[Rfam]
A member of the RNA family "Human parechovirus 1 (HPeV1) cis regulatory element (CRE)" from Parechovirus ahumpari, 113 nucleotides long. About the family: This family represents a Parechovirus cis regulatory element which is located in the 5'-terminal 112 nucleotides of the genome of human parechovirus 1 (HPeV1). Pairs were carried over by alignment from the consensus structure, which is taken from published work. A reference for the family is Nateri et al. (2002), "Terminal RNA replication elements in human parechovirus 1", J Virol.

RNA sequence: UUUGAAAGGGGUCUCCUAGAGAGCUUGGCCGUCGGGCCUUAUACCCCGACUUGCUGAGCUUCUCUAGAAGAGUCCUUUUCCCAGCCAGAGGUGGCUGGUUAAAUAAUACCUAC
Numbered sequence: 001u002u003u004g005a006a007a008g009g010g011g012u013c014u015c016c017u018a019g020a021g022a023g024c025u026u027g028g029c030c031g032u033c034g035g036g037c038c039u040u041a042u043a044c045c046c047c048g049a050c051u052u053g054c055u056g057a058g059c060u061u062c063u064c065u066a067g068a069a070g071a072g073u074c075c076u077u078u079u080c081c082c083a084g085c086c087a088g089a090g091g092u093g094g095c096u097g098g099u100u101a102a103a104u105a106a107u108a109c110c111u112a113c
Stems, first nucleotide, its partner, number of pairs: 004080008012071003016067005021061009031050006081098006089111004
Dot-bracket structure: ...(((((((((((.((((((((((((((.((((((........))))))..))))))))).))))).))).))))))))((((((..[[[[)))))).........]]]]..
The family's RNA type in Rfam is cis-regulatory element. Its family is annotated with viral genome replication in the Gene Ontology.